Overview: The family of this 73-nucleotide sequence from Saccharomyces cerevisiae is "tRNA". NCBI's taxonomy places the organism under Eukaryota, Opisthokonta, Dikarya, saccharomyceta, Saccharomyces. The family's RNA type in Rfam is transfer RNA. Its Rfam clan is "tRNA clan".

[Rfam]
RNA sequence: GCUUCUAUGGCCAAGUUGGUAAGGCGCCACACUAGUAAUGUGGAGAUCAUCGGUUCAAAUCCGAUUGGAAGCA
Numbered sequence: 001g002c003u004u005c006u007a008u009g010g011c012c013a014a015g016u017u018g019g020u021a022a023g024g025c026g027c028c029a030c031a032c033u034a035g036u037a038a039u040g041u042g043g044a045g046a047u048c049a050u051c052g053g054u055u056c057a058a059a060u061c062c063g064a065u066u067g068g069a070a071g072c073a
Stems, first nucleotide, its partner, number of pairs: 001072007010025003027043005049065005